[Rfam]
RNA sequence: AUUCCUUCUGUCGUGUAUCCCCGGUUGAUGCAACCUUGGAUGC
Numbered sequence: 001a002u003u004c005c006u007u008c009u010g011u012c013g014u015g016u017a018u019c020c021c022c023g024g025u026u027g028a029u030g031c032a033a034c035c036u037u038g039g040a041u042g043c
Stems, first nucleotide, its partner, number of pairs: 010025004034042001
RNA: Plastid-ycf3 group II-D1 intron